[Rfam]
mir-9193 microRNA precursor family: a 74-nucleotide RNA sequence from Cnephaeus nilssonii.
RNA sequence: AGAGGUGCGGGGGGGGACCUCAGCCUGGAUUGUGAGAGGGCACAGGCCAGGCCGAGGGACCCCAUUGGUGCACG
Numbered sequence: 001a002g003a004g005g006u007g008c009g010g011g012g013g014g015g016g017a018c019c020u021c022a023g024c025c026u027g028g029a030u031u032g033u034g035a036g037a038g039g040g041c042a043c044a045g046g047c048c049a050g051g052c053c054g055a056g057g058g059a060c061c062c063c064a065u066u067g068g069u070g071c072a073c074g
Stems, first nucleotide, its partner, number of pairs: 004071001008067003012063004018057004023052003027048002030045005

Gene Ontology terms of the family: RISC complex and miRNA-mediated post-transcriptional gene silencing. A search with the family's covariance model found it, with a score of 58 bits.